The record is a 244-nucleotide RNA sequence from Monascus purpureus, which matches "Small nucleolar RNA snR191" in Rfam. The organism belongs to Monascus, within Eukaryota. Its Rfam clan is "SNORA74 clan". The literature on the family includes a 2003 paper in RNA by Badis et al., "A snoRNA that guides the two most conserved pseudouridine modifications within rRNA confers a growth advantage in yeast". Gene Ontology terms of the family: nucleolus and RNA processing.
[Rfam]
RNA sequence: UUCCAUUGCUAAGUCAAGGCUUCUUCCUGCGAUUAUCCAUCGCGCUUCUAUGGAAGUUUGUCUGUUACAGCUAUGGUAGAUCAACACUGGUCCGCGCCGAACUUCUUUCUGAAGCUAGGCUGACUAGCUUUCGUUCUGAUUGCCUGUCGAAAGGACCACGUUGUGUUUUGUUUAAGAGUUGAGAUCUGCUUCUGCCUUUUUCGGUGGCUCAGUAGCAGUUCUCUUAGUAACAUCUCACACAUCG
Number, nucleotide and partner (000 for none) at each position: 001u000002u000003c076004c075005a074006u073007u000008g000009c000010u000011a000012a000013g000014u000015c000016a000017a063018g062019g061020c060021u000022u000023c056024u055025u054026c053027c052028u000029g043030c042031g041032a040033u039034u000035a000036u000037c000038c000039a033040u032041c031042g030043c029044g000045c000046u000047u000048c000049u000050a000051u000052g027053g026054a025055a024056g023057u000058u000059u000060g020061u019062c018063u017064g000065u000066u000067a000068c000069a000070g000071c000072u000073a006074u005075g004076g003077u000078a000079g000080a000081u000082c000083a000084a000085c000086a000087c000088u158089g157090g156091u155092c154093c000094g000095c000096g120097c119098c118099g000100a116101a000102c114103u113104u112105c111106u000107u000108u000109c000110u000111g105112a104113a103114g102115c000116u100117a000118g098119g097120c096121u149122g148123a147124c000125u000126a000127g143128c142129u000130u000131u139132c138133g137134u000135u000136c000137u133138g132139a131140u000141u000142g128143c127144c000145u000146g000147u123148c122149g121150a000151a000152a000153g000154g092155a091156c090157c089158a088159c000160g000161u000162u000163g238164u237165g236166u000167u000168u000169u232170g231171u230172u000173u000174a000175a000176g000177a000178g000179u000180u000181g223182a222183g221184a220185u000186c000187u217188g216189c215190u214191u000192c207193u206194g205195c204196c203197u000198u000199u000200u000201u000202c000203g196204g195205u194206g193207g192208c000209u000210c000211a000212g000213u000214a190215g189216c188217a187218g000219u000220u184221c183222u182223c181224u000225u000226a000227g000228u000229a000230a171231c170232a169233u000234c000235u000236c165237a164238c163239a000240c000241a000242u000243c000244g000